[Rfam]
RNA sequence: AAUUUUGUUCAUAGGAACAAAAAGAAGCUAACUUUAUUUUAUACUCACACAAGUACAGAUACCCAAUGGGA
Numbered sequence: 001a002a003u004u005u006u007g008u009u010c011a012u013a014g015g016a017a018c019a020a021a022a023a024g025a026a027g028c029u030a031a032c033u034u035u036a037u038u039u040u041a042u043a044c045u046c047a048c049a050c051a052a053g054u055a056c057a058g059a060u061a062c063c064c065a066a067u068g069g070g071a
Base pairs, nucleotide, nucleotide: 003022004021006019007018008017009016010015044070045069046068053062054061055060

A member of the RNA family "Plastid-clpP 5UTR RNA" from Nicotiana sylvestris, 71 nucleotides long. The family's consensus secondary structure was predicted with LocARNA. About the family: Plastid clpP is a non-coding RNA (ncRNA) recognised in plastids. It was found in the prime untranslated region (5UTR) of a protease complex subunit (clpP) in plastids, suggesting a posible cis-regulatory function. The family has 343 seed sequences and 2,105 matches in Rfam 15.1. A search with the family's covariance model found it, with a score of 61 bits.